[Rfam]
RNA sequence: GUGGGCGGAAGCUUAUUGUAGAGGUCACAUAGGGAGUGCUAGUCACUCAACCAGCCAUCUCGGGCAAGGUCUGAGACAAGAGCCAAUAGUUGUUCUUGCGGGACAUCAUCUGACUCGGGUGAGCGAGUGAACCGACAAAAUGGGUCAAGUGUGCAGUUCUCUUAGGAAACACCAGGUGGCGCUAUUUCCCAGCGCCGCUGGCGGAUGUGUGAACCGACAAAAUGGGUCAAGUGUGCAGUUCUCUUAGGAAAAACCAGGUGGCGCUGGCGGAUAUAAUGCAUUGAGUUGGAAACGCUGGCGGAUGUAUGAGGUGGAGUACGUCUCCAGAACUCAAUUCAGACUGCUCUCUCCUCCAC
Numbered sequence: 001g002u003g004g005g006c007g008g009a010a011g012c013u014u015a016u017u018g019u020a021g022a023g024g025u026c027a028c029a030u031a032g033g034g035a036g037u038g039c040u041a042g043u044c045a046c047u048c049a050a051c052c053a054g055c056c057a058u059c060u061c062g063g064g065c066a067a068g069g070u071c072u073g074a075g076a077c078a079a080g081a082g083c084c085a086a087u088a089g090u091u092g093u094u095c096u097u098g099c100g101g102g103a104c105a106u107c108a109u110c111u112g113a114c115u116c117g118g119g120u121g122a123g124c125g126a127g128u129g130a131a132c133c134g135a136c137a138a139a140a141u142g143g144g145u146c147a148a149g150u151g152u153g154c155a156g157u158u159c160u161c162u163u164a165g166g167a168a169a170c171a172c173c174a175g176g177u178g179g180c181g182c183u184a185u186u187u188c189c190c191a192g193c194g195c196c197g198c199u200g201g202c203g204g205a206u207g208u209g210u211g212a213a214c215c216g217a218c219a220a221a222a223u224g225g226g227u228c229a230a231g232u233g234u235g236c237a238g239u240u241c242u243c244u245u246a247g248g249a250a251a252a253a254c255c256a257g258g259u260g261g262c263g264c265u266g267g268c269g270g271a272u273a274u275a276a277u278g279c280a281u282u283g284a285g286u287u288g289g290a291a292a293c294g295c296u297g298g299c300g301g302a303u304g305u306a307u308g309a310g311g312u313g314g315a316g317u318a319c320g321u322c323u324c325c326a327g328a329a330c331u332c333a334a335u336u337c338a339g340a341c342u343g344c345u346c347u348c349u350c351c352u353c354c355a356c
Stems, first nucleotide, its partner, number of pairs: 001356004007349003012310005021061004034048005071339005081303001083301002091105005106122006123299002126296004145284004312326005
This 356-nucleotide sequence from Mola mola belongs to the Rfam family "Nuclear RNase P".
Lineage of the source: Eukaryota > Eumetazoa > Chordata > Euteleostomi > Mola.
Clan: RNaseP clan.